[Rfam]
RNA sequence: GAUUUAUACAGAAGCGGCGAGAGAUUAGGCUCUAGGACCCGCUGGCAACCAUCGAUCAUCGAAAGGUGCCAAUUCCUGCCCACUCAAAAAUUGAAAGUGGGAAAUAUAAGUU
Numbered sequence: 001g002a003u004u005u006a007u008a009c010a011g012a013a014g015c016g017g018c019g020a021g022a023g024a025u026u027a028g029g030c031u032c033u034a035g036g037a038c039c040c041g042c043u044g045g046c047a048a049c050c051a052u053c054g055a056u057c058a059u060c061g062a063a064a065g066g067u068g069c070c071a072a073u074u075c076c077u078g079c080c081c082a083c084u085c086a087a088a089a090a091u092u093g094a095a096a097g098u099g100g101g102a103a104a105u106a107u108a109a110g111u112u
Base pairs, nucleotide, nucleotide: 001112002111003110004109005108006107007106008105013043014042015041016040017039021032022031023030026078027077028076029075044070045069046068047067049066050065052061054059074104079101080100081099082098083097084096

This 112-nucleotide sequence from Hymenobacter crusticola belongs to the Rfam family "SAM riboswitch aptamer (S box leader)".
The organism belongs to Hymenobacter, within Bacteria.
The family's consensus secondary structure is taken from published work.
The match comes from Rfam's covariance-model search (78 bits).